[Rfam]
RNA sequence: GCUGUCCUUAUCUUGGGGUUGUGCUACUGUUCAAUGAAGAUAUAGUGAAAACAGUACUGCUAAUGCUACACAACACUUACGCAUCCCUGGGGCUUAGGCCCCAACAUGAUGCAAUAGUUUUAAUU
Numbered sequence: 001g002c003u004g005u006c007c008u009u010a011u012c013u014u015g016g017g018g019u020u021g022u023g024c025u026a027c028u029g030u031u032c033a034a035u036g037a038a039g040a041u042a043u044a045g046u047g048a049a050a051a052c053a054g055u056a057c058u059g060c061u062a063a064u065g066c067u068a069c070a071c072a073a074c075a076c077u078u079a080c081g082c083a084u085c086c087c088u089g090g091g092g093c094u095u096a097g098g099c100c101c102c103a104a105c106a107u108g109a110u111g112c113a114a115u116a117g118u119u120u121u122a123a124u125u
Base pairs, nucleotide, nucleotide: 006018007017008016009015021060022059023058026055027054028053029052030051031050038046081112082111083110084109085108088103089102090101091100092099093098